This 97-nucleotide RNA sequence from Marinobacterium iners belongs to the Rfam family "Bacterial small signal recognition particle RNA". A search with the family's covariance model found it, with a score of 74 bits. On this family, see Rosenblad et al., Nucleic Acids Res 2003: "SRPDB: Signal Recognition Particle Database".
Nucleotides: 097
Stems, first nucleotide, its partner, number of pairs: 004091005010083005015075001017074004024066005034059004042051003
Number, partner (000 for none) and nucleotide at each position: 001000u002000g003000c004091c005090g006089g007088u008087c009000c010083u011082c012081u013080c014079g015075c016000a017074a018073c019072g020071a021000u022000a023000c024066a025065c026064c027063g028062u029000g030000a031000a032000c033000c034059u035058g036057g037056u038000c039000a040000g041000g042051c043050c044049c045000g046000g047000a048000a049044g050043g051042g052000a053000g054000c055000a056037g057036c058035c059034a060000c061000a062028g063027c064026g065025g066024u067000c068000g069000a070000c071020u072019c073018g074017u075015g076000u077000g078000c079014c080013g081012g082011g083010a084000u085000g086000u087008g088007g089006c090005u091004g092000g093000u094000g095000g096000a097000a